[Rfam]
RNA sequence: GCCGCGGUGGCUCAAAGGUAGAGCACGUCCCUCCUACAUCCUAGUGGCAAGGAUGAGGUUGCGGGUUCGAGUCCCGUCCGCGGUA
Numbered sequence: 001g002c003c004g005c006g007g008u009g010g011c012u013c014a015a016a017g018g019u020a021g022a023g024c025a026c027g028u029c030c031c032u033c034c035u036a037c038a039u040c041c042u043a044g045u046g047g048c049a050a051g052g053a054u055g056a057g058g059u060u061g062c063g064g065g066u067u068c069g070a071g072u073c074c075c076g077u078c079c080g081c082g083g084u085a
Base pairs, nucleotide, nucleotide: 001084002083003082004081005080006079007078010024011023012022013021026055027054028053029052030051061077062076063075064074065073
This 85-nucleotide sequence from Phaeodactylum tricornutum belongs to the Rfam family "tRNA". Transfer RNA (tRNA) molecules are approximately 80 nucleotides in length. It is annotated as a transfer RNA. The base pairs follow the family's consensus structure, which is taken from published work. Taxonomically the source falls in Phaeodactylum tricornutum (Eukaryota, Stramenopiles, Surirellales, Neidiineae).